Annotation
Shown here is an 88-nucleotide sequence from Kytococcus aerolatus, a member of the family "Glycine riboswitch aptamer".

RNA sequence: UGAUCCCGCGGGGGAGAGUCCCCGAGCACGGGGCGCCGAAGGAGCAAACUCCCCGGAAACUCUCAGGCGCACGGACCCCGCGGACGAG
Numbered sequence: 001u002g003a004u005c006c007c008g009c010g011g012g013g014g015a016g017a018g019u020c021c022c023c024g025a026g027c028a029c030g031g032g033g034c035g036c037c038g039a040a041g042g043a044g045c046a047a048a049c050u051c052c053c054c055g056g057a058a059a060c061u062c063u064c065a066g067g068c069g070c071a072c073g074g075a076c077c078c079c080g081c082g083g084a085c086g087a088g
Stems, first nucleotide, its partner, number of pairs: 006083008020033004035068003038064002042062003049055001
It scores 66 bits against the family's covariance model. This family represents the bacterial glycine riboswitch.